[Rfam]
RNA sequence: CUUAGCCGCAUCCUCGCGACUAAUGACAACCCUGCACCGCCCCUGGCGGUCAAGCCUCUCAUUAGCCGCGCGAACCUCUGCGGUAAAGAUCACUCUUAGCAACAAUACAUGAGUUUACCUGCAAUUGCUGCCAUCUGGUUGAAAAAAGGGGCCGUAAAGGCCCCUUUUC
Number, nucleotide and partner (000 for none) at each position: 001c000002u086003u085004a000005g084006c083007c000008g081009c080010a079011u000012c000013c000014u000015c072016g071017c070018g069019a000020c065021u064022a063023a062024u061025g060026a059027c000028a000029a000030c000031c000032c000033u000034g000035c000036a000037c000038c000039g000040c000041c000042c000043c000044u000045g000046g000047c000048g000049g000050u000051c000052a000053a000054g000055c000056c000057u000058c000059u026060c025061a024062u023063u022064a021065g020066c000067c000068g000069c018070g017071c016072g015073a000074a000075c000076c000077u000078c000079u010080g009081c008082g000083g006084u005085a003086a002087a000088g000089a000090u000091c000092a000093c000094u000095c121096u000097u000098a000099g000100c000101a000102a000103c000104a000105a000106u000107a000108c000109a000110u000111g000112a000113g000114u000115u000116u000117a000118c000119c000120u000121g095122c000123a000124a000125u000126u000127g000128c000129u000130g000131c000132c000133a000134u000135c000136u000137g000138g000139u000140u000141g000142a000143a000144a000145a000146a000147a000148g164149g163150g162151g161152c160153c159154g000155u000156a000157a000158a000159g153160g152161c151162c150163c149164c148165u000166u000167u000168u000169c000
RNA: SraG RNA
Organism: Jejuibacter calystegiae